[Rfam]
RNA sequence: UUUCGCGGUAGAGGUGCGGCGGCCAUGAGUAGCCGGGCUAGUCUUCCGAUUGCGCUUCGGAGGCCUGGGUGAAAGGGGCCGGGAGUUUCCGCCGAAAUCGGCUGGGGUGCGCAGGCCCUUCCGGUUGGGGAGUCCGGCUAAGACCGGCUCACUGUCACCCUUGGCUACGGCGGGUGGAGCGCUAUCGGGAAU
Numbered sequence: 001u002u003u004c005g006c007g008g009u010a011g012a013g014g015u016g017c018g019g020c021g022g023c024c025a026u027g028a029g030u031a032g033c034c035g036g037g038c039u040a041g042u043c044u045u046c047c048g049a050u051u052g053c054g055c056u057u058c059g060g061a062g063g064c065c066u067g068g069g070u071g072a073a074a075g076g077g078g079c080c081g082g083g084a085g086u087u088u089c090c091g092c093c094g095a096a097a098u099c100g101g102c103u104g105g106g107g108u109g110c111g112c113a114g115g116c117c118c119u120u121c122c123g124g125u126u127g128g129g130g131a132g133u134c135c136g137g138c139u140a141a142g143a144c145c146g147g148c149u150c151a152c153u154g155u156c157a158c159c160c161u162u163g164g165c166u167a168c169g170g171c172g173g174g175u176g177g178a179g180c181g182c183u184a185u186c187g188g189g190a191a192u
Stems, first nucleotide, its partner, number of pairs: 006187006016092004020081005032070002034067006096126006104118003127153002130150003134147004155177006
RNA: Lysine riboswitch aptamer